[Rfam]
RNA sequence: GUUUUCUGAACAGCUGGUGUAGCUACAGAGAAGUCAGCUUCCUUCAGAGAGC
Numbered sequence: 001g002u003u004u005u006c007u008g009a010a011c012a013g014c015u016g017g018u019g020u021a022g023c024u025a026c027a028g029a030g031a032a033g034u035c036a037g038c039u040u041c042c043u044u045c046a047g048a049g050a051g052c
Base pairs, nucleotide, nucleotide: 001052002051003050004049005048006047007046008045009044012039013038014037015036016035017034018033019026020025
RNA: MAT2A 3'UTR stem loop C
Organism: Rhinopithecus roxellana